The family of this 96-nucleotide RNA sequence from Lacrimispora xylanisolvens is "Purine riboswitch aptamer". Lineage of the source: Bacteria > Bacillati > Lachnospirales > Lachnospiraceae > Lacrimispora. The base pairs follow the family's consensus structure, which is taken from published work. For this family Rfam cites "Riboswitches Control Fundamental Biochemical Pathways in Bacillus subtilis and Other Bacteria" (Mandal et al., Cell, 2003).

RNA sequence: UUAAAAUAAAACCGUUGCGCUUAUAUAAGUUCAAAAUUGGUUGAACGUUUCUACCAACUACCUCAAUAGUUGACUAUAAGGGUUAGAAGGAAAAAG
Numbered sequence: 001u002u003a004a005a006a007u008a009a010a011a012c013c014g015u016u017g018c019g020c021u022u023a024u025a026u027a028a029g030u031u032c033a034a035a036a037u038u039g040g041u042u043g044a045a046c047g048u049u050u051c052u053a054c055c056a057a058c059u060a061c062c063u064c065a066a067u068a069g070u071u072g073a074c075u076a077u078a079a080g081g082g083u084u085a086g087a088a089g090g091a092a093a094a095a096g
Stems, first nucleotide, its partner, number of pairs: 018082001020080006029046006055072006